Record summary
The record is a 350-nucleotide RNA from Wolbachia endosymbiont of Drosophila melanogaster, which matches "Bacterial RNase P class A" in Rfam. Pairs were carried over by alignment from the consensus structure, which is taken from published work. Rfam's curators put it in the seed alignment. It is annotated as a ribozyme.
RNA sequence: CUAGGUGGAAUAAGUAGCUGCUGUUGUGUGAUAAACAUAGCAGAGGAAAGUCCGGGCUCCAAGGAAAAAUAGUGACGGGUAAUGCCCGCCGGAGGUAACUCCAGUUAUAGGGCUACAGAAAAUUACCGCCUAAAAUAUUUUUAGGUAAGGGUGAAAAGGUGUGGUAAGAGCACACCAUGGCAAUGGCAACAUUGGUAGUCGAGUAACCAACACUAGGAGCAAGAUUAAAUAGAAGUAGAUUUUAUGUUUUCCUCAUAUCUACUCGGGUAAAUCGCAUGCGGUAAAUGGUAACAUUUACUCCAGAUAAAUAGCUACAUAAACAGAACUCGGCUUAUAUUUCACCUAGGCGU
Numbered sequence: 001c002u003a004g005g006u007g008g009a010a011u012a013a014g015u016a017g018c019u020g021c022u023g024u025u026g027u028g029u030g031a032u033a034a035a036c037a038u039a040g041c042a043g044a045g046g047a048a049a050g051u052c053c054g055g056g057c058u059c060c061a062a063g064g065a066a067a068a069a070u071a072g073u074g075a076c077g078g079g080u081a082a083u084g085c086c087c088g089c090c091g092g093a094g095g096u097a098a099c100u101c102c103a104g105u106u107a108u109a110g111g112g113c114u115a116c117a118g119a120a121a122a123u124u125a126c127c128g129c130c131u132a133a134a135a136u137a138u139u140u141u142u143a144g145g146u147a148a149g150g151g152u153g154a155a156a157a158g159g160u161g162u163g164g165u166a167a168g169a170g171c172a173c174a175c176c177a178u179g180g181c182a183a184u185g186g187c188a189a190c191a192u193u194g195g196u197a198g199u200c201g202a203g204u205a206a207c208c209a210a211c212a213c214u215a216g217g218a219g220c221a222a223g224a225u226u227a228a229a230u231a232g233a234a235g236u237a238g239a240u241u242u243u244a245u246g247u248u249u250u251c252c253u254c255a256u257a258u259c260u261a262c263u264c265g266g267g268u269a270a271a272u273c274g275c276a277u278g279c280g281g282u283a284a285a286u287g288g289u290a291a292c293a294u295u296u297a298c299u300c301c302a303g304a305u306a307a308a309u310a311g312c313u314a315c316a317u318a319a320a321c322a323g324a325a326c327u328c329g330g331c332u333u334a335u336a337u338u339u340c341a342c343c344u345a346g347g348c349g350u
Base pairs, nucleotide, nucleotide: 001346002345003344004343005342006341007340008339009338010337012335014315015314016313017312018311019310021043022042023041024040025039026038027037028036029035048333049332050331052330053329054328055327056326057219058218059217060216067250068249070215071214072213073212074211076088077087078086079085090104091102092101093100094099105210106209110208111207112204113203114202126150127149128146129145130144131143132142133141134140135139158176159175160174161173162172163171177199178197179196181194182193183192184191185190223273224272225271226270234263235262236261237260238259243257244256245255246254280299281298282297283296284295285294286293287292